This 107-nucleotide RNA sequence from Lactuca sativa belongs to the Rfam family "Plant small nucleolar RNA R71". Its family is annotated with RNA processing and nucleolus in the Gene Ontology. The base pairs follow the family's consensus structure, which was predicted with PFOLD. The organism belongs to Lactuca, within Eukaryota.

RNA sequence: AGGUCAUGUUGAGGGCAAUUUCUGAGCAAGCCCUUGUACCACUCCCAUGCUUCGUAUAGUGACUCCCCCGGCUGUUGCUCAAAGUUGGCUAUUGCCUUCUUGAGUUU
Numbered sequence: 001a002g003g004u005c006a007u008g009u010u011g012a013g014g015g016c017a018a019u020u021u022c023u024g025a026g027c028a029a030g031c032c033c034u035u036g037u038a039c040c041a042c043u044c045c046c047a048u049g050c051u052u053c054g055u056a057u058a059g060u061g062a063c064u065c066c067c068c069c070g071g072c073u074g075u076u077g078c079u080c081a082a083a084g085u086u087g088g089c090u091a092u093u094g095c096c097u098u099c100u101u102g103a104g105u106u107u
Stems, first nucleotide, its partner, number of pairs: 001107001003105002005102002057074002060071001